[Rfam]
Rfam assigns this 78-nucleotide sequence from Porphyromonas gingivalis to the family "Bacteroidetes FopS (family of paralogous sRNAs)". The RNA-binding protein RbpB and BTncRNA_FopS sRNA are involved in the post-transcription regulation of polysaccharide utilisation loci (PUL). FopS sRNAs function as post-transcriptional repressors by binding to the vicinity of the start codon of the first mRNA of target PUL polycistrons, typically corresponding to the cognate SusC homolog, impeding translation of the respective glycan transporter. The family has 12 seed sequences and 822 matches in Rfam 15.1.
RNA sequence: GUGUUUUUCAUGGUAUUAGAUUUUAAGGUUAAUUGGAGAGUGAGACGUCGUGAGACGUUUCGCUCUCGUUUUUUUGUG
Numbered sequence: 001g002u003g004u005u006u007u008u009c010a011u012g013g014u015a016u017u018a019g020a021u022u023u024u025a026a027g028g029u030u031a032a033u034u035g036g037a038g039a040g041u042g043a044g045a046c047g048u049c050g051u052g053a054g055a056c057g058u059u060u061c062g063c064u065c066u067c068g069u070u071u072u073u074u075u076g077u078g
Base pairs, nucleotide, nucleotide: 041062042061043060044059045058046057047056048055049054